Notes: A member of the RNA family "U11 spliceosomal RNA" from Sinocyclocheilus anshuiensis, 136 nucleotides long.
RNA sequence: AAAAAGGGCAUCUGCUGCGACCGGCACAGCUGUGGGUAGGGUUUUCUGACACAGCUGCGGAAUCGCUAUCAAGAGAUUCCAGAUGCACGAUUUUUAUAACCCGAGGCUGCUAAUGAUCGUUAUUCUUGGUGCCUCA
Numbered sequence: 001a002a003a004a005a006g007g008g009c010a011u012c013u014g015c016u017g018c019g020a021c022c023g024g025c026a027c028a029g030c031u032g033u034g035g036g037u038a039g040g041g042u043u044u045u046c047u048g049a050c051a052c053a054g055c056u057g058c059g060g061a062a063u064c065g066c067u068a069u070c071a072a073g074a075g076a077u078u079c080c081a082g083a084u085g086c087a088c089g090a091u092u093u094u095u096a097u098a099a100c101c102c103g104a105g106g107c108u109g110c111u112a113a114u115g116a117u118c119g120u121u122a123u124u125c126u127u128g129g130u131g132c133c134u135c136a
Base pairs, nucleotide, nucleotide: 008086009085010084011083012082013026014025015024016023017022027057028056029055030054031053032052033051034050035047036046038044059080060079061078062077063076064075104134105133106132107131109130110129111128112127113126115125116124
By type it is a spliceosomal small nuclear RNA. Its family is annotated with U11 snRNP, pre-mRNA 5'-splice site binding and mRNA 5'-splice site recognition in the Gene Ontology. The source organism's lineage runs through Eukaryota, Bilateria, Gnathostomata, Neopterygii and Sinocyclocheilus.